[Rfam]
A member of the RNA family "t44 RNA" from Alteromonas aestuariivivens, 94 nucleotides long. Rfam describes the family as follows. This family consists of a number of bacterial RNA genes of between 135 and 170 bases in length.
RNA sequence: UAAACUUUAAAUUUAAAACACACAUACACCGGCACUUGCUAUCGGGGUGUCCAGUGAAAGCUGGAUCGAUACAAGGGGUGUAUGGAGGCCUAAC
Numbered sequence: 001u002a003a004a005c006u007u008u009a010a011a012u013u014u015a016a017a018a019c020a021c022a023c024a025u026a027c028a029c030c031g032g033c034a035c036u037u038g039c040u041a042u043c044g045g046g047g048u049g050u051c052c053a054g055u056g057a058a059a060g061c062u063g064g065a066u067c068g069a070u071a072c073a074a075g076g077g078g079u080g081u082a083u084g085g086a087g088g089c090c091u092a093a094c
Stems, first nucleotide, its partner, number of pairs: 023084008035075004041070004049066005